Rfam assigns this 167-nucleotide RNA from Oribacterium sp. C9 to the family "Clostridiales-1 RNA". By type it is a small RNA.

RNA sequence: UGAACUAAGGGGCAAAAAGUCACACAUGAUGUGCUUGCACAUUGAUGUGUGACCUCUUGCCCCAAACAAACAUGAGGAAGUAGCCAUUUUUCGAAGAAAAAUGAGCGGAUUCCGAAUGUUUGCAGCGGGUUUGAAGCGCAAAGCGCGUAAAAGCCGCGUAUAGUUCA
Numbered sequence: 001u002g003a004a005c006u007a008a009g010g011g012g013c014a015a016a017a018a019g020u021c022a023c024a025c026a027u028g029a030u031g032u033g034c035u036u037g038c039a040c041a042u043u044g045a046u047g048u049g050u051g052a053c054c055u056c057u058u059g060c061c062c063c064a065a066a067c068a069a070a071c072a073u074g075a076g077g078a079a080g081u082a083g084c085c086a087u088u089u090u091u092c093g094a095a096g097a098a099a100a101a102u103g104a105g106c107g108g109a110u111u112c113c114g115a116a117u118g119u120u121u122g123c124a125g126c127g128g129g130u131u132u133g134a135a136g137c138g139c140a141a142a143g144c145g146c147g148u149a150a151a152a153g154c155c156g157c158g159u160a161u162a163g164u165u166c167a
Base pairs, nucleotide, nucleotide: 001167002166003165004164005163006162007161010062011061012060013059019053020052021051022050023049024048025047026046027045029042030041031040032039033038067122068121069120070119071118072117073116076113077112078111079110083106084105085103086102087101088100089099090098091097092096126156127155128154130152131151132150136146137145138144139143